A member of the RNA family "tRNA" from bacterium HR11, 72 nucleotides long. A search with the family's covariance model found it, with a score of 77 bits. By type it is a transfer RNA.

RNA sequence: GAGGCGGUAGCUCAGUGGUAGAGCACUGGCCUUUUAAGCCAGGGGUCGAGGGUUCGACCCCCUCCCGCCUCA
Numbered sequence: 001g002a003g004g005c006g007g008u009a010g011c012u013c014a015g016u017g018g019u020a021g022a023g024c025a026c027u028g029g030c031c032u033u034u035u036a037a038g039c040c041a042g043g044g045g046u047c048g049a050g051g052g053u054u055c056g057a058c059c060c061c062c063u064c065c066c067g068c069c070u071c072a
Base pairs, nucleotide, nucleotide: 001071002070003069004068005067006066007065010024011023012022013021026042027041028040029039030038048064049063050062051061052060